A member of the RNA family "Plant small nucleolar RNA U3" from Brassica oleracea, 221 nucleotides long.
The family is grouped with related families in Rfam's "U3 clan".
The family's consensus secondary structure is taken from published work.
It scores 125 bits against the family's covariance model.
By type it is a C/D-box small nucleolar RNA.
Small nucleolar RNAs (snoRNAs) are involved in the processing and modification of rRNA in the nucleolus.
The literature on the family includes a 1997 paper in Nucleic Acids Res by Zwieb, "The uRNA database".
RNA sequence: ACGACCUUACUUGAAAAGGAUCUGUUCUAUAGGCUCGUACCUUUGUGUCCCUGAUCUCUAAAGAGUCAGACCCUAAAUCAUGGUGGAUGAUGAUUCAUGUCCGUGCGAUUAGAGAGUGAUUAACGGCCACGAUCAUCUCUAGAUGUGUCUGGUUCUGUAGAGGAUCGUUCUCGGCUCAGUUCUAUCCUUGCCGGGGUGGUCGCACAGCGGCCUGAUAGAUU
Numbered sequence: 001a002c003g004a005c006c007u008u009a010c011u012u013g014a015a016a017a018g019g020a021u022c023u024g025u026u027c028u029a030u031a032g033g034c035u036c037g038u039a040c041c042u043u044u045g046u047g048u049c050c051c052u053g054a055u056c057u058c059u060a061a062a063g064a065g066u067c068a069g070a071c072c073c074u075a076a077a078u079c080a081u082g083g084u085g086g087a088u089g090a091u092g093a094u095u096c097a098u099g100u101c102c103g104u105g106c107g108a109u110u111a112g113a114g115a116g117u118g119a120u121u122a123a124c125g126g127c128c129a130c131g132a133u134c135a136u137c138u139c140u141a142g143a144u145g146u147g148u149c150u151g152g153u154u155c156u157g158u159a160g161a162g163g164a165u166c167g168u169u170c171u172c173g174g175c176u177c178a179g180u181u182c183u184a185u186c187c188u189u190g191c192c193g194g195g196g197u198g199g200u201c202g203c204a205c206a207g208c209g210g211c212c213u214g215a216u217a218g219a220u221u
Stems, first nucleotide, its partner, number of pairs: 001038002003035001005033003013027003017023002043069003048064002052060002077220003084217002101207001103205009113169002116166001123158004130151001131149003134145004171194005179186001